[Rfam]
RNA: Z6 small nucleolar RNA
Nucleotides: 067
Stems, first nucleotide, its partner, number of pairs: 001067004
Number, partner (000 for none) and nucleotide at each position: 001067u002066g003065c004064u005000g006000g007000u008000g009000g010000u011000g012000a013000a014000g015000c016000g017000c018000c019000c020000u021000g022000g023000c024000u025000c026000c027000g028000a029000g030000c031000a032000c033000u034000g035000g036000g037000c038000c039000u040000u041000g042000c043000c044000u045000g046000g047000g048000g049000u050000a051000a052000g053000c054000u055000g056000g057000g058000g059000a060000g061000g062000g063000c064004a065003g066002c067001a